[Rfam]
Nucleotides: 254
Base pairs, nucleotide, nucleotide: 002254003253004252005251006250007249008248010246011245014206015205016204017203018202019201022065023064024063025062026061027060028059037052038051039050040049041048070239071238073237074236075235076234085097086096087095088094098111099110100109101108114175115174116173117172118171123168124167126165135163136162137161138160145156146155147154148153209224211222212221213220
Number, partner (000 for none) and nucleotide at each position: 001000g002254g003253g004252c005251a006250u007249u008248c009000c010246g011245a012000a013000g014206u015205c016204u017203u018202g019201c020000a021000c022065u023064c024063u025062g026061g027060g028059c029000u030000a031000c032000a033000a034000a035000c036000u037052g038051a039050g040049a041048a042000c043000c044000u045000g046000g047000u048041u049040u050039c051038u052037c053000c054000u055000u056000c057000c058000u059028g060027c061026c062025c063024a064023g065022g066000g067000g068000a069000a070239a071238g072000u073237c074236c075235c076234c077000g078000g079000a080000c081000c082000g083000u084000u085097g086096g087095c088094a089000g090000a091000a092000a093000g094088u095087g096086c097085c098111c099110u100109g101108g102000u103000u104000u105000a106000a107000u108101c109100c110099a111098g112000c113000g114175c115174u116173g117172a118171c119000u120000g121000g122000u123168u124167c125000u126165c127000a128000c129000u130000g131000c132000u133000g134000u135163g136162a137161g138160c139000u140000g141000a142000g143000a144000u145156g146155u147154u148153c149000g150000u151000u152000a153148g154147a155146a156145c157000u158000g159000a160138g161137c162136u163135u164000g165126g166000u167124g168123a169000u170000u171118g172117u173116c174115a175114g176000u177000c178000a179000g180000c181000a182000u183000u184000g185000u186000c187000a188000a189000u190000g191000u192000u193000c194000u195000a196000g197000u198000a199000a200000u201019g202018c203017a204016a205015g206014a207000a208000a209224g210000u211222u212221g213220c214000u215000g216000a217000u218000g219000a220213g221212u222211a223000c224209u225000u226000a227000a228000c229000a230000c231000a232000a233000c234076g235075g236074g237073g238071c239070u240000c241000a242000u243000u244000c245011u246010c247000a248008g249007a250006a251005u252004g253003c254002u
This 254-nucleotide RNA from Gouania willdenowi belongs to the Rfam family "RNase MRP".
The organism belongs to Gouania, within Eukaryota.
It is annotated as a ribozyme.
It scores 165 bits against the family's covariance model.